Group I catalytic intron: a 255-nucleotide RNA from Circinella minor.
Its family is annotated with Group I intron splicing in the Gene Ontology.
Rfam's curators write: Group I catalytic introns are large self-splicing ribozymes. They catalyse their own excision from mRNA, tRNA and rRNA precursors in a wide range of organisms. The core secondary structure consists of 9 paired regions (P1-P9). These fold to essentially two domains - the P4-P6 domain (formed from the stacking of P5, P4, P6 and P6a helices) and the P3-P9 domain (formed from the P8, P3, P7 and P9 helices).

RNA sequence: GAAUGUGGGUUAGAUGAGUAAGCCCCCCUUAAUUGUGAAAUUAAGGUGAAAAUCGGGUGAAUUGCGAGGAACCCCAAUAGUUAAUAUUGGAUAAUUCGCAGCGAAGUGCUUUUCGACAGAAUGAUUCUAUCAUUUGGAAAGUAAACGUUCAACGACUAGAAGGUGAGUAAUGUCAACAAUAAUCCUUCCACGAGCGCCCGACAACCUCUGAAUAAGAGGUUGAUGAUAUAGUCUGAACAAUUCUGUAAAGAAUUG
Numbered sequence: 001g002a003a004u005g006u007g008g009g010u011u012a013g014a015u016g017a018g019u020a021a022g023c024c025c026c027c028c029u030u031a032a033u034u035g036u037g038a039a040a041u042u043a044a045g046g047u048g049a050a051a052a053u054c055g056g057g058u059g060a061a062u063u064g065c066g067a068g069g070a071a072c073c074c075c076a077a078u079a080g081u082u083a084a085u086a087u088u089g090g091a092u093a094a095u096u097c098g099c100a101g102c103g104a105a106g107u108g109c110u111u112u113u114c115g116a117c118a119g120a121a122u123g124a125u126u127c128u129a130u131c132a133u134u135u136g137g138a139a140a141g142u143a144a145a146c147g148u149u150c151a152a153c154g155a156c157u158a159g160a161a162g163g164u165g166a167g168u169a170a171u172g173u174c175a176a177c178a179a180u181a182a183u184c185c186u187u188c189c190a191c192g193a194g195c196g197c198c199c200g201a202c203a204a205c206c207u208c209u210g211a212a213u214a215a216g217a218g219g220u221u222g223a224u225g226a227u228a229u230a231g232u233c234u235g236a237a238c239a240a241u242u243c244u245g246u247a248a249a250g251a252a253u254u255g
Stems, first nucleotide, its partner, number of pairs: 005028001007026003011022001032042001034040001053201004058196002063100006074090004101148002115134001152234001154233005204220006240253005
Rfam 15.1 lists 5,602 matches to the family in 1,395 species. The source organism's lineage runs through Eukaryota, Fungi, Mucoromycota, Mucoromycetes and Circinella. The base pairs follow the family's consensus structure, which is taken from published work. A reference for the family is Cate et al. (1996), "Crystal structure of a group I ribozyme domain: principles of RNA packing", Science.